[Rfam]
Rfam assigns this 98-nucleotide RNA sequence from Lactococcus cremoris to the family "Purine riboswitch aptamer". The base pairs follow the family's consensus structure, which is taken from published work. The sequence is in the family's curated seed alignment. Taxonomically the source falls in Lactococcus cremoris subsp. cremoris (Bacteria, Bacillota, Bacilli, Lactobacillales).
RNA sequence: UUGAGCUGCUAUAAACAAUCUUAUUUAUACCUAGAAUAUGGCUGGGCGUUUCUACCUCGUACCGUAAAUGCGAGACAAUAAGGAAAUUCGAUUUUUCA
Number, nucleotide and partner (000 for none) at each position: 001u000002u000003g000004a000005g000006c000007u000008g000009c000010u000011a000012u000013a000014a000015a000016c000017a000018a000019u083020c082021u081022u080023a079024u078025u077026u000027a000028u000029a000030c046031c045032u044033a043034g042035a000036a000037u000038a000039u000040g000041g000042c034043u033044g032045g031046g030047c000048g000049u000050u000051u000052c000053u000054a000055c000056c074057u073058c072059g071060u070061a069062c000063c000064g000065u000066a000067a000068a000069u061070g060071c059072g058073a057074g056075a000076c000077a025078a024079u023080a022081a021082g020083g019084a000085a000086a000087u000088u000089c000090g000091a000092u000093u000094u000095u000096u000097c000098a000